[Rfam]
RNA: mir-29 microRNA precursor family
RNA sequence: GAAGAACUGAGAUCGAUUGGUGCAUAGAUAACGCCCAAAAAGUCAUUUUAUUUCAAUUCUAGCACCAUUCGAAAUCAGUGCUUU
Numbered sequence: 001g002a003a004g005a006a007c008u009g010a011g012a013u014c015g016a017u018u019g020g021u022g023c024a025u026a027g028a029u030a031a032c033g034c035c036c037a038a039a040a041a042g043u044c045a046u047u048u049u050a051u052u053u054c055a056a057u058u059c060u061a062g063c064a065c066c067a068u069u070c071g072a073a074a075u076c077a078g079u080g081c082u083u084u
Base pairs, nucleotide, nucleotide: 001084002083003082004081005079007078008077009076010075013072014071015070018067019066020065021064022063025061026060027059028058